[Rfam]
RNA sequence: AAUAUUACCCUAACAGGAGCACGGACUUUGUUUUUUAAUGCAGUAAGUGCUUCUUGUUGGGGUAGUUUUU
Numbered sequence: 001a002a003u004a005u006u007a008c009c010c011u012a013a014c015a016g017g018a019g020c021a022c023g024g025a026c027u028u029u030g031u032u033u034u035u036u037a038a039u040g041c042a043g044u045a046a047g048u049g050c051u052u053c054u055u056g057u058u059g060g061g062g063u064a065g066u067u068u069u070u
Base pairs, nucleotide, nucleotide: 004066005065006064007063008062009061010060011059013057014056015055016054017053018051019050020049021048022047025044026043027042
RNA: miR-430 microRNA precursor family